[Rfam]
RNA sequence: UCGGAUCUUUUUGCGGUCUGGGCUUGCUGUUCCUCCCGCCAGCACUCAGGAAGCCCUUACCCCAAAAAGGAUUUG
Numbered sequence: 001u002c003g004g005a006u007c008u009u010u011u012u013g014c015g016g017u018c019u020g021g022g023c024u025u026g027c028u029g030u031u032c033c034u035c036c037c038g039c040c041a042g043c044a045c046u047c048a049g050g051a052a053g054c055c056c057u058u059a060c061c062c063c064a065a066a067a068a069g070g071a072u073u074u075g
Base pairs, nucleotide, nucleotide: 007069008068009067010066011065012064013063015061016060017059020056021055022054023053025051027049028048
RNA: mir-129 microRNA precursor family